Selenocysteine transfer RNA: a 91-nucleotide sequence from Corynebacterium sp. HMSC08D02.
RNA sequence: GGAGGCGUACGUGUCCUGGUGGCCACCCCAGUCUUCAAAACUGGUGAGGUCGAGCAUCUCGGCCUGGCAGGUUCGAUUCCUGUCCGUCUCC
Numbered sequence: 001g002g003a004g005g006c007g008u009a010c011g012u013g014u015c016c017u018g019g020u021g022g023c024c025a026c027c028c029c030a031g032u033c034u035u036c037a038a039a040a041c042u043g044g045u046g047a048g049g050u051c052g053a054g055c056a057u058c059u060c061g062g063c064c065u066g067g068c069a070g071g072u073u074c075g076a077u078u079c080c081u082g083u084c085c086g087u088c089u090c091c
Stems, first nucleotide, its partner, number of pairs: 001091007009083001011026003015022002028044005047065005068082004
The family's consensus secondary structure is taken from published work. The source organism's lineage runs through Bacteria, Bacillati, Actinomycetes, Mycobacteriales and Corynebacterium. Gene Ontology term of the family: triplet codon-amino acid adaptor activity.